[Rfam]
The record is a 134-nucleotide sequence from Camellia sinensis, which matches "MIR398 microRNA precursor family" in Rfam. Lineage of the source: Eukaryota > Streptophyta > Pentapetalae > Ericales > Camellia sinensis. The literature on the family includes a 2004 paper in Plant Cell by Sunkar and Zhu, "Novel and stress-regulated microRNAs and other small RNAs from Arabidopsis". Rfam 15.1 lists 627 matches to the family in 211 species.
RNA sequence: GCAUACCCCAGAGGUGUGAACAUGAGAACACACACUGUGAUUUUGAGUUUGGUUGCUUUUAAAUCUCAGCCUCUUUCUCUUUCUCUUUCUCAAUAUCACAAUGUGUGUUCUCAGGUCACCCCUUUGGGGCACUU
Numbered sequence: 001g002c003a004u005a006c007c008c009c010a011g012a013g014g015u016g017u018g019a020a021c022a023u024g025a026g027a028a029c030a031c032a033c034a035c036u037g038u039g040a041u042u043u044u045g046a047g048u049u050u051g052g053u054u055g056c057u058u059u060u061a062a063a064u065c066u067c068a069g070c071c072u073c074u075u076u077c078u079c080u081u082u083c084u085c086u087u088u089c090u091c092a093a094u095a096u097c098a099c100a101a102u103g104u105g106u107g108u109u110c111u112c113a114g115g116u117c118a119c120c121c122c123u124u125u126g127g128g129g130c131a132c133u134u
Stems, first nucleotide, its partner, number of pairs: 007128002011124004016119004024112010